RNA: c-di-GMP-I-GGC riboswitch aptamer
Organism: Paenibacillus macerans
RNA sequence: UACGAAAAUAGCAAACUUGUCGAAAGACAGGGACGCAAAGCCACAGGGCCUUCUUGACGAAACGUCAAUGGCAGCCUGGCCGCCGAAG
Numbered sequence: 001u002a003c004g005a006a007a008a009u010a011g012c013a014a015a016c017u018u019g020u021c022g023a024a025a026g027a028c029a030g031g032g033a034c035g036c037a038a039a040g041c042c043a044c045a046g047g048g049c050c051u052u053c054u055u056g057a058c059g060a061a062a063c064g065u066c067a068a069u070g071g072c073a074g075c076c077u078g079g080c081c082g083c084c085g086a087a088g
Stems, first nucleotide, its partner, number of pairs: 001088001003085002011036002016031006034074001040080003045077003048072003